[Rfam]
RNA sequence: CGGUUCUUUCUAGCUCAACUCUCGUGGUGCCAUACGAGUUUCUUCUCGAUAACUCUGCCUUGCUUCUGUGCUACUCCGUGGCGUUGAAGCAUACCAUGGGAAAAGUCCCCGGGCCUAGGACAGAAAGUGUCAGAACUUCAUUGGUUCCUAUUGCAGCAGUCAGAAGUCGGUGGCGGCGUCGACGCUCGUCGUCGUCGUCAUUCCUUGGCUUAGACAAUAGUUGCAAAUAAGCCAGACCUAUUCUAUAGUAAUGUUGAGAAGCGGAAGUUUGGUCUUCACUGUACCUUACUUCCUGCUGAACACAAUGGGGCUUACUACGAAGGAACU
Dot-bracket structure: .(((((((((...((((((..(((((((.......(.(((((...........................................))))).))))))))...[[[.[[[[........((((.....)))).((((.......)))).(((((((((..............................................................)))))).))).......................)))))).(((((............................))))).........]]]]]]].....)))))))))
Rfam assigns this 327-nucleotide sequence from Anopheles darlingi to the family "RNase MRP". About the family: RNase MRP is an enzymatically active ribonucleoprotein with two distinct roles in eukaryotes. A search with the family's covariance model found it, with a score of 87 bits. The family has 66 seed sequences and 3,510 matches in Rfam 15.1. Lineage of the source: Eukaryota > Ecdysozoa > Allotriocarida > argyritarsis section > argyritarsis series.